[Rfam]
RNA: Mammalian CPEB3 ribozyme
RNA sequence: GGUUGCAAGUUUGAGGUCAUAGCAGAAGCACCCACAGUGUGGCCUGUCAGAUUCCAAUCUGCAAAUUCUGCU
Numbered sequence: 001g002g003u004u005g006c007a008a009g010u011u012u013g014a015g016g017u018c019a020u021a022g023c024a025g026a027a028g029c030a031c032c033c034a035c036a037g038u039g040u041g042g043c044c045u046g047u048c049a050g051a052u053u054c055c056a057a058u059c060u061g062c063a064a065a066u067u068c069u070g071c072u
Base pairs, nucleotide, nucleotide: 015044016043017042018041021072022071023070024069025068026067027066028040029039030038048061049060050059051058052057